[Rfam]
Nucleotides: 116
Stems, first nucleotide, its partner, number of pairs: 011026006028051003033046002036042002088103006
Number, partner (000 for none) and nucleotide at each position: 001000u002000u003000u004000g005000u006000u007000a008000a009000g010000a011026a012025g013024a014023a015022a016021c017000a018000g019000c020000c021016g022015u023014u024013u025012c026011u027000c028051a029050c030049c031000u032000u033046g034045c035000a036042g037041c038000a039000c040000a041037g042036c043000u044000a045034g046033u047000a048000a049030g050029g051028u052000u053000u054000g055000a056000g057000c058000a059000a060000u061000u062000c063000u064000u065000u066000a067000u068000u069000a070000a071000g072000u073000a074000u075000u076000g077000u078000g079000u080000a081000u082000u083000u084000u085000c086000a087000g088103g089102a090101c091100g092099g093098c094000a095000u096000u097000u098093g099092c100091c101090g102089u103088c104000c105000u106000u107000u108000u109000u110000u111000a112000g113000u114000g115000u116000a